This 63-nucleotide RNA from Orycteropus afer belongs to the Rfam family "U7 small nuclear RNA". The family's consensus secondary structure was predicted with PFOLD. Rfam describes the family as follows. Animal histone pre-mRNAs are spliced by a different mechanism than nuclear pre-mRNAs and self-splicing introns. NCBI's taxonomy places the organism under Eukaryota, Mammalia, Tubulidentata, Orycteropodidae, Orycteropus afer.
[Rfam]
Nucleotides: 063
Stems, first nucleotide, its partner, number of pairs: 034060008043051001
Number, partner (000 for none) and nucleotide at each position: 001000g002000a003000g004000c005000g006000u007000u008000g009000c010000a011000g012000c013000u014000c015000u016000u017000u018000u019000a020000g021000a022000a023000u024000a025000u026000g027000u028000c029000u030000a031000g032000c033000a034060g035059g036058u037057u038056u039055u040054c041053u042000a043051g044000u045000u046000u047000u048000u049000u050000u051043c052000c053041g054040g055039a056038a057037g058036a059035c060034c061000c062000u063000c